Rfam assigns this 113-nucleotide RNA from Gemella morbillorum to the family "Ribosomal protein L20 leader".
For this family Rfam cites "Diverse mechanisms for regulating ribosomal protein synthesis in Escherichia coli" (Zengel and Lindahl, Prog Nucleic Acid Res Mol Biol, 1994).
By type it is a cis-regulatory leader.
Rfam describes the family as follows. This family is a putative r-protein leader autoregulatory structure found in B. subtilis and other low-GC Gram-positive bacteria.
NCBI's taxonomy places the organism under Bacteria, Bacilli, Caryophanales, Gemellaceae, Gemella.

[Rfam]
RNA sequence: AUACAAAAGUAGAAGCACCCGUUUCUCACCUGCCAAUUUUGAUUGUUCAGGUCUAUGUAGAUGAAAUGUAGAAUUUUAUGCUGGGUGUUUUGCACCCAGUUUUUUUAGUACUU
Numbered sequence: 001a002u003a004c005a006a007a008a009g010u011a012g013a014a015g016c017a018c019c020c021g022u023u024u025c026u027c028a029c030c031u032g033c034c035a036a037u038u039u040u041g042a043u044u045g046u047u048c049a050g051g052u053c054u055a056u057g058u059a060g061a062u063g064a065a066a067u068g069u070a071g072a073a074u075u076u077u078a079u080g081c082u083g084g085g086u087g088u089u090u091u092g093c094a095c096c097c098a099g100u101u102u103u104u105u106u107a108g109u110a111c112u113u
Stems, first nucleotide, its partner, number of pairs: 011026006028052003034045004080100009